A member of the RNA family "mir-263 microRNA precursor family" from Scaptodrosophila lebanonensis, 83 nucleotides long. It scores 69 bits against the family's covariance model. NCBI's taxonomy places the organism under Eukaryota, Arthropoda, Eremoneura, Cyclorrhapha, Scaptodrosophila. The family has 52 seed sequences and 368 matches in Rfam 15.1. Pairs were carried over by alignment from the consensus structure, which was predicted with RNAalifold. Rfam links the family to the GO terms miRNA-mediated post-transcriptional gene silencing and RISC complex.
RNA sequence: UUUUGUUGUAUCUUGGCACUGGGAGAAUUCACAGUUGAUUCCACAAUAUUCUGUGGUUCUUUGGGUGCCAAAAUUCAACUUGU
Numbered sequence: 001u002u003u004u005g006u007u008g009u010a011u012c013u014u015g016g017c018a019c020u021g022g023g024a025g026a027a028u029u030c031a032c033a034g035u036u037g038a039u040u041c042c043a044c045a046a047u048a049u050u051c052u053g054u055g056g057u058u059c060u061u062u063g064g065g066u067g068c069c070a071a072a073a074u075u076c077a078a079c080u081u082g083u
Base pairs, nucleotide, nucleotide: 005079006078007077008076010074013071014070015069016068017067018066020064022062023060025059026058027057029056030055031054032053033052034051